[Rfam]
RNA sequence: GUUCAAUAUGGUGAUGAGGCUCACCAAAAUGCAUCUUUAUGCUGAUGGCUUCUACUUUACA
Numbered sequence: 001g002u003u004c005a006a007u008a009u010g011g012u013g014a015u016g017a018g019g020c021u022c023a024c025c026a027a028a029a030u031g032c033a034u035c036u037u038u039a040u041g042c043u044g045a046u047g048g049c050u051u052c053u054a055c056u057u058u059a060c061a
Stems, first nucleotide, its partner, number of pairs: 010025004016052006031042004
A member of the RNA family "Fluoride riboswitch aptamer (crcB RNA motif)" from Caproiciproducens galactitolivorans, 61 nucleotides long. The family's consensus secondary structure is taken from published work. A search with the family's covariance model found it, with a score of 43 bits.